This 86-nucleotide sequence from Paenibacillus larvae belongs to the Rfam family "Group II catalytic intron D1-D4-1". Group II introns are found in rRNA, tRNA and mRNA of organelles in fungi, plants and protists, and also in mRNA in bacteria. NCBI's taxonomy places the organism under Bacteria, Caryophanales, Paenibacillus, Paenibacillus larvae, Paenibacillus larvae subsp. larvae.

RNA sequence: UAAAUUUGCUUGUGAAAGCAGACUGAGCGUACAGAAGUCAGCAGACGCCAUAGUACGCAAGAAGUUGCAACGCCUUGCGGAAGGGC
Numbered sequence: 001u002a003a004a005u006u007u008g009c010u011u012g013u014g015a016a017a018g019c020a021g022a023c024u025g026a027g028c029g030u031a032c033a034g035a036a037g038u039c040a041g042c043a044g045a046c047g048c049c050a051u052a053g054u055a056c057g058c059a060a061g062a063a064g065u066u067g068c069a070a071c072g073c074c075u076u077g078c079g080g081a082a083g084g085g086c
Stems, first nucleotide, its partner, number of pairs: 001025002005022007037046003047086003056079006

The sequence is in the family's curated seed alignment.